[Rfam]
RNA sequence: GGGGAUAUAGUAUAGCGGGAAUACGCCACAAUGGCAUUGUGGAAUCAGGGGUUCGAUUCCCUUUAUCUCCA
Numbered sequence: 001g002g003g004g005a006u007a008u009a010g011u012a013u014a015g016c017g018g019g020a021a022u023a024c025g026c027c028a029c030a031a032u033g034g035c036a037u038u039g040u041g042g043a044a045u046c047a048g049g050g051g052u053u054c055g056a057u058u059c060c061c062u063u064u065a066u067c068u069c070c071a
Base pairs, nucleotide, nucleotide: 001070002069003068004067005066006065007064010024011023012022013021026042027041028040029039030038047063048062049061050060051059
Dot-bracket structure: (((((((..((((.......)))).(((((.......)))))....(((((.......)))))))))))).